[Rfam]
RNA sequence: GAUUGGCAGGAAUGAUGAAUCAAUUAGAUGUGUGAAGUUACUUUAUGAACUUAACUUUUGAGGCAUAUUUUUUUUUGUCUGACCUGCCAAUC
Numbered sequence: 001g002a003u004u005g006g007c008a009g010g011a012a013u014g015a016u017g018a019a020u021c022a023a024u025u026a027g028a029u030g031u032g033u034g035a036a037g038u039u040a041c042u043u044u045a046u047g048a049a050c051u052u053a054a055c056u057u058u059u060g061a062g063g064c065a066u067a068u069u070u071u072u073u074u075u076u077g078u079c080u081g082a083c084c085u086g087c088c089a090a091u092c
Base pairs, nucleotide, nucleotide: 001092002091003090004089005088006087007086008085009084010083